Description: This 268-nucleotide part of an RNA from Saccharolobus islandicus belongs to the Rfam family "Archaeal large subunit ribosomal RNA". On this family, see Cannone et al., BMC Bioinformatics 2002: "The comparative RNA web (CRW) site: an online database of comparative sequence and structure information for ribosomal, intron, and other RNAs". Rfam links the family to the GO terms ribosome and structural constituent of ribosome.
RNA sequence: GAGUUCACGCCAGUGGCGAGCCUAAGGGGGUUAACCCCGAAGGCAUAGGGAAACCGAGUGCCCGCAACCCGGGAAACCGGGUGAGGGGCAGGGUCUGCCAGGGCCUAAAGUCACUGGCGUGAGGCUAGAAACCGGGCGAUCUAGGCCGGGGCAGGCCGAAGCCGGGGGAAACCUCGGUGGAGGGCCGAAUAGGGGUUCUGACGUGCAAUUCGUUCCCCUGACCCCGGUCUAGGGGCGAAAGACCAAUCUAGCUCGGUGAUAGCUAGUU
Dot-bracket structure: ....(((((((((((((..((((..((((.....))))..))))...((....))....((((...((((((....))))))...))))..((((......))))....)))))))))))))..((.(...((((((...((((((((((((.((((...(((((((....)))))))....)))).....((((..(.((........))).))))..).))))))))))).((.......))......))))))......).))..